The family of this 103-nucleotide RNA from Hibiscus trionum is "Small nucleolar RNA Z279/snoR105/snoR108". From the family's description: This family includes the plant snoRNAs known as Z279, snoR105 and snoR108. The literature on the family includes a 2002 paper in Curr Biol by Marker et al., "Experimental RNomics: identification of 140 candidates for small non-messenger RNAs in the plant Arabidopsis thaliana". NCBI's taxonomy places the organism under Eukaryota, Streptophytina, Spermatophyta, Pentapetalae, Hibiscus.
[Rfam]
RNA sequence: GGGACAUGAUGAGUGGUCAGUACUCGCAAUCUAUGUGGGAUGAGUGUCCGCUCCAACGCCUGGUUACGACACUUGGGCAUUCCCUUUUUUACCACCUGAUCCC
Numbered sequence: 001g002g003g004a005c006a007u008g009a010u011g012a013g014u015g016g017u018c019a020g021u022a023c024u025c026g027c028a029a030u031c032u033a034u035g036u037g038g039g040a041u042g043a044g045u046g047u048c049c050g051c052u053c054c055a056a057c058g059c060c061u062g063g064u065u066a067c068g069a070c071a072c073u074u075g076g077g078c079a080u081u082c083c084c085u086u087u088u089u090u091a092c093c094a095c096c097u098g099a100u101c102c103c
Base pairs, nucleotide, nucleotide: 001103002102003101004100014094015093016092017091023039024038025037026036027035042082043081044080045079046078047077048076060075062073063072